[Rfam]
RNA: Plastid-ccsA-ndhD-1 3UTR RNA
RNA sequence: AAGUCGUUGAGAACCUUUUGAAUCACUCAAAUAAUGGAGUGAUUCAAAAGGUUCUCACAAA
Numbered sequence: 001a002a003g004u005c006g007u008u009g010a011g012a013a014c015c016u017u018u019u020g021a022a023u024c025a026c027u028c029a030a031a032u033a034a035u036g037g038a039g040u041g042a043u044u045c046a047a048a049a050g051g052u053u054c055u056c057a058c059a060a061a
Stems, first nucleotide, its partner, number of pairs: 008057017029040001
Dot-bracket structure: .......(((((((((((((((((....(..........))))))))))))))))))....